Shown here is a 41-nucleotide RNA from Bacillus sp. T33-2, a member of the family "Ribosomal protein L19 leader". Gene Ontology term of the family: regulation of gene expression. On this family, see Zengel and Lindahl, Prog Nucleic Acid Res Mol Biol 1994: "Diverse mechanisms for regulating ribosomal protein synthesis in Escherichia coli". The match comes from Rfam's covariance-model search (47 bits). Pairs were carried over by alignment from the consensus structure, which was predicted with CMfinder. This family is a putative r-protein leader autoregulatory structure found in B. subtilis and other low-GC Gram-positive bacteria. It is located in the 5' untranslated regions of mRNAs encoding ribosomal protein L19 (rplS). By type it is a cis-regulatory leader.
Nucleotides: 041
Base pairs, nucleotide, nucleotide: 003039004038005037006036007035008034009033013031014030015029016028018026
Number, partner (000 for none) and nucleotide at each position: 001000a002000c003039g004038a005037u006036g007035u008034u009033c010000c011000g012000c013031u014030g015029c016028a017000u018026a019000u020000g021000u022000u023000a024000u025000u026018u027000u028016u029015g030014c031013a032000a033009g034008a035007g036006c037005a038004u039003u040000u041000g